[Rfam]
RNA sequence: UGCUUAUCAAGAGUGGCUGAGGGACUGGCCCAGUGACGCCCGGCAACCUGCAUGAUGUGUAAGGUGCCAAAUCCUGCAAAGCAGAUGGCUUUGAUAGAUAAGAA
Numbered sequence: 001u002g003c004u005u006a007u008c009a010a011g012a013g014u015g016g017c018u019g020a021g022g023g024a025c026u027g028g029c030c031c032a033g034u035g036a037c038g039c040c041c042g043g044c045a046a047c048c049u050g051c052a053u054g055a056u057g058u059g060u061a062a063g064g065u066g067c068c069a070a071a072u073c074c075u076g077c078a079a080a081g082c083a084g085a086u087g088g089c090u091u092u093g094a095u096a097g098a099u100a101a102g103a104a
Base pairs, nucleotide, nucleotide: 001104003102004101005100006099007098008097013041015040016039017038021031022030023029025076027074028073042068043067044066045065047064048063049061050060051059052058072096077093078092079091080090081089082088
Shown here is a 104-nucleotide RNA sequence from Pullulanibacillus camelliae, a member of the family "SAM riboswitch aptamer (S box leader)". Taxonomically the source falls in Pullulanibacillus (Bacteria, Bacillota, Caryophanales, Sporolactobacillaceae).